Rfam assigns this 177-nucleotide sequence from Cohaesibacter gelatinilyticus to the family "FMN riboswitch aptamer (RFN element)".
Pairs were carried over by alignment from the consensus structure, which is taken from published work.
The match comes from Rfam's covariance-model search (107 bits).
The source organism's lineage runs through Bacteria, Pseudomonadati, Alphaproteobacteria, Hyphomicrobiales and Cohaesibacter.
[Rfam]
RNA sequence: GUUUGUUCUCGGGGCGGGGUGAAAGUCCCCACCGGCGGUAUUCAGAAAGGCCUCAAAGCUUUUCUGUCAGCCCGCGAGCGCAUUGCCAAAGCGCCUUACCAGGUACAGAGGCAAUGGUCAGCAGAUCUGGUGCGAUUCCAGAGCCGACGGUUACAGUCCGGAUGAAAGAGAACGGCA
Number, nucleotide and partner (000 for none) at each position: 001g000002u000003u175004u174005g173006u172007u171008c170009u169010c168011g000012g000013g000014g000015c000016g000017g029018g028019g027020u000021g000022a000023a000024a000025g000026u000027c019028c018029c017030c000031a157032c156033c146034g145035g075036c074037g073038g072039u000040a000041u000042u000043c000044a000045g000046a000047a000048a000049g000050g000051c000052c000053u000054c000055a000056a000057a000058g000059c000060u000061u000062u000063u000064c000065u000066g000067u000068c000069a000070g144071c143072c038073c037074g036075c035076g000077a000078g122079c121080g000081c000082a000083u000084u000085g000086c000087c000088a000089a000090a000091g000092c000093g000094c000095c000096u000097u000098a000099c000100c000101a000102g000103g000104u000105a000106c000107a000108g000109a000110g000111g000112c000113a000114a000115u000116g000117g000118u000119c000120a000121g079122c078123a000124g000125a000126u142127c141128u140129g139130g138131u000132g000133c000134g000135a000136u000137u000138c130139c129140a128141g127142a126143g071144c070145c034146g033147a000148c160149g159150g158151u000152u000153a000154c000155a000156g032157u031158c150159c149160g148161g000162a000163u000164g000165a000166a000167a000168g010169a009170g008171a007172a006173c005174g004175g003176c000177a000